About this RNA:
This 171-nucleotide RNA from Crocosphaera watsonii belongs to the Rfam family "Ribosomal protein L10 leader". It is one of the family's seed sequences. It is annotated as a cis-regulatory leader. The family's consensus secondary structure was predicted with CMfinder.

[Rfam]
RNA sequence: GUGAAACUUUGGUUUAUUCCGAAGACAGCAGGGGCAACUUGCUUAAAUAUCCUGCCGAGGUUGAAGCCUGAAGAAAAUGACAUCUGAGUAAAUGGUAGGUUUUGCUAACUAUUUCUCUGAUUAAAUUGGACUUCAGCCCCGGCAAAUUGUUAGGGGUUUAUUUUUUUCCCA
Numbered sequence: 001g002u003g004a005a006a007c008u009u010u011g012g013u014u015u016a017u018u019c020c021g022a023a024g025a026c027a028g029c030a031g032g033g034g035c036a037a038c039u040u041g042c043u044u045a046a047a048u049a050u051c052c053u054g055c056c057g058a059g060g061u062u063g064a065a066g067c068c069u070g071a072a073g074a075a076a077a078u079g080a081c082a083u084c085u086g087a088g089u090a091a092a093u094g095g096u097a098g099g100u101u102u103u104g105c106u107a108a109c110u111a112u113u114u115c116u117c118u119g120a121u122u123a124a125a126u127u128g129g130a131c132u133u134c135a136g137c138c139c140c141g142g143c144a145a146a147u148u149g150u151u152a153g154g155g156g157u158u159u160a161u162u163u164u165u166u167u168c169c170c171a
Stems, first nucleotide, its partner, number of pairs: 028055006034042003137155003141151004